Glycine riboswitch aptamer: a 90-nucleotide RNA sequence from Tabrizicola oligotrophica. Gene Ontology term of the family: glycine biosynthetic process. The pairing is the family consensus, mapped onto this sequence. The match comes from Rfam's covariance-model search (66 bits).

RNA sequence: GGCGUCAGUUCGGGAGAAUCCGGGGAAAGCCCGGUGCCGAAGGAGCAACCGCCCCGGUAAACUCUCAGGCGCAAGGACCGUUCUGGCACA
Numbered sequence: 001g002g003c004g005u006c007a008g009u010u011c012g013g014g015a016g017a018a019u020c021c022g023g024g025g026a027a028a029g030c031c032c033g034g035u036g037c038c039g040a041a042g043g044a045g046c047a048a049c050c051g052c053c054c055c056g057g058u059a060a061a062c063u064c065u066c067a068g069g070c071g072c073a074a075g076g077a078c079c080g081u082u083c084u085g086g087c088a089c090a
Stems, first nucleotide, its partner, number of pairs: 006085003011080003020034004036070003039066002043064003049057002